[Rfam]
RNA: c-di-AMP riboswitch aptamer (ydaO/yuaA leader)
Organism: Thermotalea metallivorans
RNA sequence: ACAUUACAUUUGCUGAAUCCCGGAUAUUCCGGGUACGGAGGAACCAAUUUUGGGGUUAAUCCAUGUAUUUCAUGGUAGGGAACCUUCUAUCCCGAACCCGUCAGCUAACUUCGGAAGCAUAGAAAGGAAGGAGU
Numbered sequence: 001a002c003a004u005u006a007c008a009u010u011u012g013c014u015g016a017a018u019c020c021c022g023g024a025u026a027u028u029c030c031g032g033g034u035a036c037g038g039a040g041g042a043a044c045c046a047a048u049u050u051u052g053g054g055g056u057u058a059a060u061c062c063a064u065g066u067a068u069u070u071c072a073u074g075g076u077a078g079g080g081a082a083c084c085u086u087c088u089a090u091c092c093c094g095a096a097c098c099c100g101u102c103a104g105c106u107a108a109c110u111u112c113g114g115a116a117g118c119a120u121a122g123a124a125a126g127g128a129a130g131g132a133g134u
Stems, first nucleotide, its partner, number of pairs: 011119004019033005036113005045052002053099003061075004078093004